[Rfam]
The record is a 118-nucleotide RNA from Actinacidiphila rubida, which matches "Actinobacteria sRNA Ms_IGR-7" in Rfam. Lineage of the source: Bacteria > Bacillati > Kitasatosporales > Streptomycetaceae > Actinacidiphila. A reference for the family is Li et al. (2013), "Identification of small RNAs in Mycobacterium smegmatis using heterologous Hfq", RNA.

RNA sequence: CGGAAGUGCCCUCGUGGUCGUGCGUGCUGGAAGCGUGAAGAACUCCCAUCAUCACAGGUCGCAGGGCACUUCCUCGUUUCUCGAGAAGCUAUCCACAGGCAUCAAGCCGGUGGAUCAG
Numbered sequence: 001c002g003g004a005a006g007u008g009c010c011c012u013c014g015u016g017g018u019c020g021u022g023c024g025u026g027c028u029g030g031a032a033g034c035g036u037g038a039a040g041a042a043c044u045c046c047c048a049u050c051a052u053c054a055c056a057g058g059u060c061g062c063a064g065g066g067c068a069c070u071u072c073c074u075c076g077u078u079u080c081u082c083g084a085g086a087a088g089c090u091a092u093c094c095a096c097a098g099g100c101a102u103c104a105a106g107c108c109g110g111u112g113g114a115u116c117a118g
Base pairs, nucleotide, nucleotide: 002073003072004071005070006069007068008067009066010065011064012063015061016060017059019057021056022055024053025051026050028048030046032044033043101115102114
Rfam classes the family as a small RNA.